[Rfam]
RNA: Small nucleolar RNA SNORA42/SNORA80 family
Organism: Panthera leo
RNA sequence: ACUUUGUUUCAGCCCAUGGUGAGGCCUUCUCUGGGGGCCUCUCAUUGUGGACCCCUGCCAGAGGAAUGUGCAGCCUCGAACCAUUGUUCAGCCUCCUUAAUGGUGGGCUGUGAGCACUGAAGGGGGCGGUACAGCA
Numbered sequence: 001a002c003u004u005u006g007u008u009u010c011a012g013c014c015c016a017u018g019g020u021g022a023g024g025c026c027u028u029c030u031c032u033g034g035g036g037g038c039c040u041c042u043c044a045u046u047g048u049g050g051a052c053c054c055c056u057g058c059c060a061g062a063g064g065a066a067u068g069u070g071c072a073g074c075c076u077c078g079a080a081c082c083a084u085u086g087u088u089c090a091g092c093c094u095c096c097u098u099a100a101u102g103g104u105g106g107g108c109u110g111u112g113a114g115c116a117c118u119g120a121a122g123g124g125g126g127c128g129g130u131a132c133a134g135c136a
Stems, first nucleotide, its partner, number of pairs: 001056001007050001014047001016045004021040001023038001025035001071129001073127004082119002087114002089110006